[Rfam]
RNA sequence: GGAGGUUGAGGUCCUGACUGGGGGACAGCAGGAGAACUUGAGGAAGGCUGACUUGGAGGCCCCUCCUCUCUGUCCCCACAGGACUUUGGCCUGG
Numbered sequence: 001g002g003a004g005g006u007u008g009a010g011g012u013c014c015u016g017a018c019u020g021g022g023g024g025a026c027a028g029c030a031g032g033a034g035a036a037c038u039u040g041a042g043g044a045a046g047g048c049u050g051a052c053u054u055g056g057a058g059g060c061c062c063c064u065c066c067u068c069u070c071u072g073u074c075c076c077c078a079c080a081g082g083a084c085u086u087u088g089g090c091c092u093g094g
Stems, first nucleotide, its partner, number of pairs: 003092014019078005025073004030067005037058001038056005
This 94-nucleotide sequence from Lipotes vexillifer belongs to the Rfam family "mir-4667 microRNA precursor family". The family's consensus secondary structure was predicted with RNAalifold. The source organism's lineage runs through Eukaryota, Opisthokonta, Mammalia, Boreoeutheria and Lipotes.